[Rfam]
RNA sequence: GACUUACGUUCAGUAGCGAGCUUAACCGAAUAGGGGAGGCGUAGGGAAACCGAGUCUGAUAAGGGCGACUGAGUUGCUGGGCGUAGACCCGAAACCGGAUGAUCUAUCCAUGGCCAGGAUGAAGGUGCCGUAACAGGUACUGGAGGUCCGAACCCACUAAUGUUGAAAAAUUAGGGGAUGAGCUGUGGAUAGGGGUGAAAGGCUAAACAAAUCCGGAAAUAGCUGGUU
Numbered sequence: 001g002a003c004u005u006a007c008g009u010u011c012a013g014u015a016g017c018g019a020g021c022u023u024a025a026c027c028g029a030a031u032a033g034g035g036g037a038g039g040c041g042u043a044g045g046g047a048a049a050c051c052g053a054g055u056c057u058g059a060u061a062a063g064g065g066c067g068a069c070u071g072a073g074u075u076g077c078u079g080g081g082c083g084u085a086g087a088c089c090c091g092a093a094a095c096c097g098g099a100u101g102a103u104c105u106a107u108c109c110a111u112g113g114c115c116a117g118g119a120u121g122a123a124g125g126u127g128c129c130g131u132a133a134c135a136g137g138u139a140c141u142g143g144a145g146g147u148c149c150g151a152a153c154c155c156a157c158u159a160a161u162g163u164u165g166a167a168a169a170a171u172u173a174g175g176g177g178a179u180g181a182g183c184u185g186u187g188g189a190u191a192g193g194g195g196u197g198a199a200a201g202g203c204u205a206a207a208c209a210a211a212u213c214c215g216g217a218a219a220u221a222g223c224u225g226g227u228u
Base pairs, nucleotide, nucleotide: 005085006084007083008082009081010080011079012078013077014076015075016074017073020040021039022038023037026034027033044051045050054066055065056064057063088226089225091223095216096215097214098213099212100211104192105191106190107189108188109187110186111185112184113183114182115180117149118148119147120146124141125140126139127138128137129136153177154176155175157174158173159172160171161170194204195203196202
A member of the RNA family "Bacterial large subunit ribosomal RNA" from Azoarcus sp. KH32C, 228 nucleotides of a longer RNA.